[Rfam]
RNA sequence: CACGGCACACGCGGGAGCCCGGACGACCGGGCUGAGAGGGAGGCCGCGGCCUCCGACCGUACGAACCUGAUCCGGGUCAUUCCGGCGAAGGGAGGAGGCGGAACCCCAUG
Numbered sequence: 001c002a003c004g005g006c007a008c009a010c011g012c013g014g015g016a017g018c019c020c021g022g023a024c025g026a027c028c029g030g031g032c033u034g035a036g037a038g039g040g041a042g043g044c045c046g047c048g049g050c051c052u053c054c055g056a057c058c059g060u061a062c063g064a065a066c067c068u069g070a071u072c073c074g075g076g077u078c079a080u081u082c083c084g085g086c087g088a089a090g091g092g093a094g095g096a097g098g099c100g101g102a103a104c105c106c107c108a109u110g
Base pairs, nucleotide, nucleotide: 006098010094011060012059013058014057017032018031019030020029021028039054040053041052042051043050066091067090068089072085073084074083075082
TPP riboswitch aptamer (THI element): a 110-nucleotide sequence from Streptomyces sp. AJS327. For this family Rfam cites "Metabolite-binding RNA domains are present in the genes of eukaryotes" (Sudarsan et al., RNA, 2003). The base pairs follow the family's consensus structure, which is taken from published work. Vitamin B(1) in its active form thiamin pyrophosphate (TPP) is an essential coenzyme that is synthesised by coupling of pyrimidine and thiazole moieties in bacteria.